[Rfam]
RNA sequence: GGUGGUGAGCACGGGAGCCCGACAGCGGGCUGAGAGGGAGCCGGGAGGCUCCGACCGUCGAACCUGAUCCGGGUAAUACCGGCGCAGGGAGCGUGUAUGUUCGUGAA
Numbered sequence: 001g002g003u004g005g006u007g008a009g010c011a012c013g014g015g016a017g018c019c020c021g022a023c024a025g026c027g028g029g030c031u032g033a034g035a036g037g038g039a040g041c042c043g044g045g046a047g048g049c050u051c052c053g054a055c056c057g058u059c060g061a062a063c064c065u066g067a068u069c070c071g072g073g074u075a076a077u078a079c080c081g082g083c084g085c086a087g088g089g090a091g092c093g094u095g096u097a098u099g100u101u102c103g104u105g106a107a
Base pairs, nucleotide, nucleotide: 006095007094009092010091011058012057013056014055017030018029019028020027021026037052038051039050040049041048063088064087065086066085069082070081071080072079
The family of this 107-nucleotide sequence from Saccharopolyspora rectivirgula is "TPP riboswitch aptamer (THI element)". Rfam links the family to the GO term thiamine pyrophosphate binding.